[Rfam]
This 114-nucleotide RNA from Oryzias sinensis belongs to the Rfam family "Potassium channel RNA editing signal". Gene Ontology term of the family: adenosine to inosine editing. Taxonomically the source falls in Oryzias (Eukaryota, Osteoglossocephalai, Euteleosteomorpha, Adrianichthyoidei). Pairs were carried over by alignment from the consensus structure, which is taken from published work.
RNA sequence: GUGGGCUACGGCGACAUGUGCCCGAUUACGGUUGGGGGAAAGCUGGUGGGCUCCAUGUGCGCCAUCGCAGGCGUGCUCACCAUCUCCUUGCCCGUGCCCGUCAUCGUGUCCAAC
Numbered sequence: 001g002u003g004g005g006c007u008a009c010g011g012c013g014a015c016a017u018g019u020g021c022c023c024g025a026u027u028a029c030g031g032u033u034g035g036g037g038g039a040a041a042g043c044u045g046g047u048g049g050g051c052u053c054c055a056u057g058u059g060c061g062c063c064a065u066c067g068c069a070g071g072c073g074u075g076c077u078c079a080c081c082a083u084c085u086c087c088u089u090g091c092c093c094g095u096g097c098c099c100g101u102c103a104u105c106g107u108g109u110c111c112a113a114c
Stems, first nucleotide, its partner, number of pairs: 001114002004111002007108005013102003018097004037077002040074001049063003